[Rfam]
RNA: Bacterial large subunit ribosomal RNA, nucleotides 623 to 855
RNA sequence: GAGUUAUUGUCAACAGCAAGCUUAAAGUCCUACGGACUGGAGGCGAAGUGAAAGCGAGCCUGAAUAGGGCGAAUAAGUUGUUGGCAACAGACCCGAAGCGUAGGUGAUCUACCCAUGGCCAGGUUGAAGCUUGAGUAAAAUCAAGUGGAGGACCGAACCGGUGAACCUUGAGAUGUUCUCGGAUGAGCUGUGGGUAGGAGCGAAAGACUAAUCAAACCACGUAAUAGCUGGUU
Numbered sequence: 001g002a003g004u005u006a007u008u009g010u011c012a013a014c015a016g017c018a019a020g021c022u023u024a025a026a027g028u029c030c031u032a033c034g035g036a037c038u039g040g041a042g043g044c045g046a047a048g049u050g051a052a053a054g055c056g057a058g059c060c061u062g063a064a065u066a067g068g069g070c071g072a073a074u075a076a077g078u079u080g081u082u083g084g085c086a087a088c089a090g091a092c093c094c095g096a097a098g099c100g101u102a103g104g105u106g107a108u109c110u111a112c113c114c115a116u117g118g119c120c121a122g123g124u125u126g127a128a129g130c131u132u133g134a135g136u137a138a139a140a141u142c143a144a145g146u147g148g149a150g151g152a153c154c155g156a157a158c159c160g161g162u163g164a165a166c167c168u169u170g171a172g173a174u175g176u177u178c179u180c181g182g183a184u185g186a187g188c189u190g191u192g193g194g195u196a197g198g199a200g201c202g203a204a205a206g207a208c209u210a211a212u213c214a215a216a217c218c219a220c221g222u223a224a225u226a227g228c229u230g231g232u233u
Base pairs, nucleotide, nucleotide: 005089007087008086009085010084011083012082013081014080015079016078017077020044021043022042023041026038027037028036048055049054058070059069060068061067092231093230095228099221100220101219103218104217105216109197110196111195112194113193114192115191116190117189118188119187120185122154123153124152125151129146130145131144132143133142134141158182159181160180163178164177165176166175199209200208